[Rfam]
RNA sequence: GAGGGCAGGCCCCUCGGUGAGGGUUUUUAGGAAAACUCACCAAACCACUUCUAUGAUGCAUCUGCGGUAACAAAGGUGUGUGAAGCGAUAGAAGAAAAGGCUGUUUAAAUGGUCAGGU
Numbered sequence: 001g002a003g004g005g006c007a008g009g010c011c012c013c014u015c016g017g018u019g020a021g022g023g024u025u026u027u028u029a030g031g032a033a034a035a036c037u038c039a040c041c042a043a044a045c046c047a048c049u050u051c052u053a054u055g056a057u058g059c060a061u062c063u064g065c066g067g068u069a070a071c072a073a074a075g076g077u078g079u080g081u082g083a084a085g086c087g088a089u090a091g092a093a094g095a096a097a098a099g100g101c102u103g104u105u106u107a108a109a110u111g112g113u114c115a116g117g118u
Base pairs, nucleotide, nucleotide: 001015002014003013004012005011016041017040018039019038020037021036024033025032026031046117048094049093051091052090053089054088056081058079059078060077062075063074099114100113101112102111103110104109
Group II catalytic intron D1-D4-2: a 118-nucleotide RNA from Rhodonellum psychrophilum. Lineage of the source: Bacteria > Cytophagia > Cytophagales > Rhodonellum > Rhodonellum psychrophilum. The literature on the family includes a 2003 paper in Crit Rev Biochem Mol Biol by Lehmann and Schmidt, "Group II introns: structure and catalytic versatility of large natural ribozymes".